The family of this 229-nucleotide RNA sequence from Crateriforma conspicua is "Group II catalytic intron D1-D4-6". Group II introns are found in rRNA, tRNA and mRNA of organelles in fungi, plants and protists, and also in mRNA in bacteria.
RNA sequence: AGAGUCUUUUACGAAGAAGGUUUAGCCAACUGCUUCGGCCCCUGCCGGAGGUGCGAUGAAGGUAACGACGUCGUGCUGAGCAUCCGAUCCGGGGGAAACGUAGGCCAGCUAUUGAGCUCCGGAAUCUUUAUGCUUCCGUGUGCCGACUUUGUCCUGACAAGGGGAAGGCAACAUCGGGUCGAUCGCUACUUGGGCGAGAUCGAUGCGAACACGGCGGAGUCUGUGAACC
Numbered sequence: 001a002g003a004g005u006c007u008u009u010u011a012c013g014a015a016g017a018a019g020g021u022u023u024a025g026c027c028a029a030c031u032g033c034u035u036c037g038g039c040c041c042c043u044g045c046c047g048g049a050g051g052u053g054c055g056a057u058g059a060a061g062g063u064a065a066c067g068a069c070g071u072c073g074u075g076c077u078g079a080g081c082a083u084c085c086g087a088u089c090c091g092g093g094g095g096a097a098a099c100g101u102a103g104g105c106c107a108g109c110u111a112u113u114g115a116g117c118u119c120c121g122g123a124a125u126c127u128u129u130a131u132g133c134u135u136c137c138g139u140g141u142g143c144c145g146a147c148u149u150u151g152u153c154c155u156g157a158c159a160a161g162g163g164g165a166a167g168g169c170a171a172c173a174u175c176g177g178g179u180c181g182a183u184c185g186c187u188a189c190u191u192g193g194g195c196g197a198g199a200u201c202g203a204u205g206c207g208a209a210c211a212c213g214g215c216g217g218a219g220u221c222u223g224u225g226a227a228c229c
Stems, first nucleotide, its partner, number of pairs: 012037005019031004023197001025195002039094004046086003050081001051077001052075007061066001113223001114221001116220006136214006142169003147163004174208003178204007